About this RNA:
Rfam assigns this 477-nucleotide part of an RNA from Amylocarpus encephaloides to the family "Ascomycota telomerase RNA". It scores 105 bits against the family's covariance model. Rfam classes the family as a non-coding RNA gene. The family is grouped with related families in Rfam's "Telomerase clan". The source organism's lineage runs through Eukaryota, Pezizomycotina, leotiomyceta, sordariomyceta and Amylocarpus. For this family Rfam cites "The common ancestral core of vertebrate and fungal telomerase RNAs" (Qi et al., Nucleic Acids Res, 2013).
Nucleotides: 477
Stems, first nucleotide, its partner, number of pairs: 273293003276289003295307004
Number, partner (000 for none) and nucleotide at each position: 001000g002000u003000c004000a005000a006000a007000c008000a009000g010000a011000g012000a013000g014000a015000a016000g017000u018000c019000u020000a021000u022000a023000c024000g025000u026000c027000u028000g029000c030000g031000u032000g033000g034000a035000g036000u037000u038000a039000u040000c041000u042000g043000u044000g045000u046000g047000g048000u049000u050000u051000c052000g053000u054000c055000u056000g057000a058000u059000c060000c061000u062000g063000c064000c065000c066000u067000g068000u069000g070000u071000c072000c073000g074000g075000u076000c077000c078000g079000c080000u081000g082000c083000g084000a085000g086000g087000g088000u089000u090000g091000a092000u093000c094000a095000u096000c097000g098000u099000u100000u101000c102000u103000g104000c105000u106000a107000g108000g109000c110000u111000c112000g113000a114000u115000u116000u117000c118000u119000u120000c121000g122000g123000c124000a125000u126000g127000a128000u129000a130000c131000g132000g133000u134000c135000u136000c137000g138000a139000g140000u141000u142000u143000g144000g145000g146000u147000u148000a149000u150000a151000u152000a153000g154000a155000g156000u157000u158000u159000g160000a161000g162000g163000a164000u165000g166000c167000g168000g169000a170000u171000g172000a173000u174000a175000g176000c177000a178000u179000g180000c181000a182000g183000u184000g185000g186000u187000a188000a189000g190000a191000c192000u193000c194000a195000c196000c197000g198000u199000a200000u201000g202000c203000c204000c205000c206000a207000c208000a209000c210000u211000g212000c213000u214000a215000a216000c217000a218000u219000a220000c221000u222000c223000u224000c225000a226000a227000g228000u229000u230000c231000c232000u233000a234000c235000c236000u237000c238000c239000a240000u241000a242000u243000c244000u245000c246000c247000g248000a249000g250000a251000g252000u253000c254000a255000g256000u257000a258000a259000g260000a261000c262000g263000u264000c265000c266000a267000g268000a269000g270000c271000g272000g273293g274292a275291c276289c277288c278287a279000u280000c281000u282000c283000g284000u285000g286000u287278u288277g289276g290000a291275g292274u293273c294000a295307a296306a297305g298304c299000u300000u301000a302000g303000u304298g305297c306296u307295u308000g309000u310000c311000u312000g313000c314000u315000u316000u317000g318000g319000a320000u321000a322000g323000c324000g325000u326000c327000g328000a329000a330000u331000u332000g333000u334000c335000u336000g337000c338000u339000g340000u341000u342000g343000a344000c345000u346000u347000g348000g349000c350000u351000g352000u353000g354000g355000u356000g357000c358000u359000u360000g361000a362000u363000u364000g365000c366000u367000g368000u369000g370000c371000u372000a373000g374000c375000u376000g377000u378000g379000g380000c381000u382000g383000g384000g385000g386000a387000a388000g389000a390000u391000g392000a393000g394000u395000c396000u397000u398000g399000g400000g401000g402000u403000a404000c405000c406000a407000a408000a409000a410000a411000a412000a413000g414000a415000c416000g417000g418000g419000c420000c421000u422000g423000g424000u425000g426000g427000u428000u429000a430000g431000g432000u433000a434000g435000u436000c437000u438000g439000g440000g441000u442000u443000g444000u445000c446000u447000c448000g449000u450000a451000a452000g453000a454000g455000g456000c457000a458000a459000c460000c461000c462000c463000u464000c465000c466000a467000g468000a469000u470000u471000u472000u473000u474000g475000g476000g477000g